[Rfam]
RNA sequence: UGGCGUUGCAUCUUGGCACUGGGAGAAUUCACAGUUGAUUUACAAAUAUUCUGUGGUUCUGCGGGUGCCAAAAUCUAAUGUAA
Numbered sequence: 001u002g003g004c005g006u007u008g009c010a011u012c013u014u015g016g017c018a019c020u021g022g023g024a025g026a027a028u029u030c031a032c033a034g035u036u037g038a039u040u041u042a043c044a045a046a047u048a049u050u051c052u053g054u055g056g057u058u059c060u061g062c063g064g065g066u067g068c069c070a071a072a073a074u075c076u077a078a079u080g081u082a083a
Base pairs, nucleotide, nucleotide: 003081004080005079006078007077008076010074013071014070015069016068017067018066020064022062023060025059026058027057029056030055031054032053033052034051
Rfam assigns this 83-nucleotide sequence from Drosophila busckii to the family "mir-263 microRNA precursor family". A search with the family's covariance model found it, with a score of 70 bits. Taxonomically the source falls in Dorsilopha (Eukaryota, Neoptera, Aparaglossata, Drosophilidae). For this family Rfam cites "Direct sequencing and expression analysis of a large number of miRNAs in Aedes aegypti and a multi-species survey of novel mosquito miRNAs" (Li et al., BMC Genomics, 2009). Its Rfam clan is "mir-182 clan".